[Rfam]
The family of this 408-nucleotide RNA sequence from Corynebacterium testudinoris is "Bacterial RNase P class A". It is annotated as a ribozyme. The base pairs follow the family's consensus structure, which is taken from published work. Rfam describes the family as follows. Ribonuclease P (RNase P) is a ubiquitous endoribonuclease, found in archaea, bacteria and eukarya as well as chloroplasts and mitochondria.
RNA sequence: UGAGCCGGCCGGGUAAUCGCGGCCCCCGAACCACCACCCCUCGCGGGUGCAGGCGGGUGUCGAGGAAAGUCCGGACUCCACAGAGCACGGUGAUUGUUAACGGCAACCCGGGGCGACCCGCGGGCACGUGCAACAGAAAGUAAACCGCCACGAUCCUCCGGGAUCGAGGUAAGGGUGAAAGGGUGCGGUAAGAGCGCACCGGCAGGCCAGGUGACUGGUCUGGCCAGGUAAACCCCACCGGGAGCAAGGCAUCAAGGUCUGCCACGUCGCAGGCCGGAUCGGAUGACUGAGGGUGACUCGCCCGAGUCCGAAGGUAGCUGCUUGAGGCGGCCAGCGAUGGUCGACCCAGAUGGAUGAUUACCGCCCCAUAAAAGGGUACAGAAUCCGGCUUAUAGGCUGGCUCAUUCG
Number, nucleotide and partner (000 for none) at each position: 001u404002g403003a402004g401005c400006c399007g398008g397009c396010c395011g393012g362013g361014u360015a359016a358017u357018c356019g000020c062021g061022g060023c059024c000025c057026c056027c055028g054029a000030a000031c000032c000033a000034c000035c000036a000037c000038c000039c000040c000041u000042c000043g000044c000045g000046g000047g000048u000049g000050c000051a000052g000053g000054c028055g027056g026057g025058u000059g023060u022061c021062g020063a000064g000065g000066a000067a391068a390069g389070u000071c388072c387073g386074g385075a384076c244077u243078c242079c241080a000081c000082a000083g299084a298085g297086c000087a000088c240089g239090g238091u237092g236093a000094u106095u105096g104097u103098u000099a000100a000101c000102g000103g097104c096105a095106a094107c000108c122109c120110g119111g118112g117113g000114c000115g000116a000117c112118c111119c110120g109121c000122g108123g235124g234125c000126a000127c000128g233129u232130g229131c228132a000133a000134c000135a000136g000137a000138a000139a000140g000141u000142a000143a000144a000145c174146c173147g170148c169149c168150a000151c166152g165153a164154u163155c162156c161157u000158c000159c000160g000161g156162g155163a154164u153165c152166g151167a000168g149169g148170u147171a000172a000173g146174g145175g000176u000177g000178a000179a000180a000181g000182g200183g199184u198185g197186c196187g195188g000189u000190a000191a000192g000193a000194g000195c187196g186197c185198a184199c183200c182201g000202g224203c222204a221205g220206g219207c218208c217209a216210g215211g000212u000213g000214a000215c210216u209217g208218g207219u206220c205221u204222g203223g000224c202225c000226a000227g000228g131229u130230a000231a000232a129233c128234c124235c123236c092237a091238c090239c089240g088241g079242g078243a077244g076245c000246a000247a000248g319249g318250c317251a000252u000253c000254a000255a000256g000257g000258u000259c000260u000261g000262c000263c000264a000265c000266g000267u000268c000269g000270c000271a000272g000273g000274c000275c000276g000277g000278a000279u000280c000281g000282g000283a000284u000285g000286a000287c000288u000289g000290a000291g303292g302293g301294u300295g000296a000297c085298u084299c083300g294301c293302c292303c291304g000305a000306g000307u000308c000309c000310g000311a000312a000313g000314g000315u000316a000317g250318c249319u248320g000321c000322u000323u000324g000325a000326g345327g000328c343329g342330g341331c340332c339333a338334g000335c000336g000337a000338u333339g332340g331341u330342c329343g328344a000345c326346c000347c000348a000349g000350a000351u000352g000353g000354a000355u000356g018357a017358u016359u015360a014361c013362c012363g000364c000365c000366c000367c000368a000369u000370a000371a000372a000373a000374g000375g000376g000377u000378a000379c000380a000381g000382a000383a000384u075385c074386c073387g072388g071389c069390u068391u067392a000393u011394a000395g010396g009397c008398u007399g006400g005401c004402u003403c002404a001405u000406u000407c000408g000